The record is a 55-nucleotide RNA sequence from Lactobacillus acidophilus, which matches "L17 ribosomal protein downstream element" in Rfam. It is annotated as a cis-regulatory element. It is one of the family's seed sequences. The organism belongs to Lactobacillus acidophilus, within Bacteria.
RNA sequence: UAAGCGUAAAGAUGAUGGCGUAAGCUUAGUCUAGCUUAGAUGAUUAAGAAUCAUC
Numbered sequence: 001u002a003a004g005c006g007u008a009a010a011g012a013u014g015a016u017g018g019c020g021u022a023a024g025c026u027u028a029g030u031c032u033a034g035c036u037u038a039g040a041u042g043a044u045u046a047a048g049a050a051u052c053a054u055c
Stems, first nucleotide, its partner, number of pairs: 002037004011031003017026003039055006